Description: Glycine riboswitch aptamer: a 97-nucleotide sequence from Paenibacillus sp. FSL H7-0357. The source organism's lineage runs through Bacteria, Bacilli, Caryophanales, Paenibacillaceae and Paenibacillus. Pairs were carried over by alignment from the consensus structure. It scores 75 bits against the family's covariance model.
[Rfam]
RNA sequence: AUGAUGGCAUAGGGAGAGACCGUCUCUUGAAGACGGCGCCGAAGGAGUAAGCCCUCUACGGGGUGAAUCUCUCAGGCAAAAGGACCUUUGCCGGACG
Numbered sequence: 001a002u003g004a005u006g007g008c009a010u011a012g013g014g015a016g017a018g019a020c021c022g023u024c025u026c027u028u029g030a031a032g033a034c035g036g037c038g039c040c041g042a043a044g045g046a047g048u049a050a051g052c053c054c055u056c057u058a059c060g061g062g063g064u065g066a067a068u069c070u071c072u073c074a075g076g077c078a079a080a081a082g083g084a085c086c087u088u089u090g091c092c093g094g095a096c097g
Stems, first nucleotide, its partner, number of pairs: 006092004011087003020036004038077003041073002045071003051064002